[Rfam]
RNA sequence: AAUGUUAACUAAAGGGAUGAUGUUUACAUUGAGACCCAAGAAAAGGAUUCUGAGUUUCAGAGCUCUGAAUGAACCACUUUGUCCCCGACCUUCAAAAAGAGUAU
Numbered sequence: 001a002a003u004g005u006u007a008a009c010u011a012a013a014g015g016g017a018u019g020a021u022g023u024u025u026a027c028a029u030u031g032a033g034a035c036c037c038a039a040g041a042a043a044a045g046g047a048u049u050c051u052g053a054g055u056u057u058c059a060g061a062g063c064u065c066u067g068a069a070u071g072a073a074c075c076a077c078u079u080u081g082u083c084c085c086c087g088a089c090c091u092u093c094a095a096a097a098a099g100a101g102u103a104u
Stems, first nucleotide, its partner, number of pairs: 010094001012092004
RNA: Small nucleolar RNA SNORD124